The family of this 83-nucleotide sequence from Hymenochirus boettgeri is "mir-15 microRNA precursor family". About the family: This family represents the related mir-15a and mir-15b sequences. A search with the family's covariance model found it, with a score of 66 bits. The base pairs follow the family's consensus structure, which was predicted with RNAalifold.
RNA sequence: CCUUGGAGUAAAGUAGCAGCACAUAAUGGUUUGUGUAUUAUAAAGAGGUGCAGGCCAUAUUGUGCUGCCGCCAAAACACAAGG
Numbered sequence: 001c002c003u004u005g006g007a008g009u010a011a012a013g014u015a016g017c018a019g020c021a022c023a024u025a026a027u028g029g030u031u032u033g034u035g036u037a038u039u040a041u042a043a044a045g046a047g048g049u050g051c052a053g054g055c056c057a058u059a060u061u062g063u064g065c066u067g068c069c070g071c072c073a074a075a076a077c078a079c080a081a082g083g
Stems, first nucleotide, its partner, number of pairs: 001083005013071002016068008026058011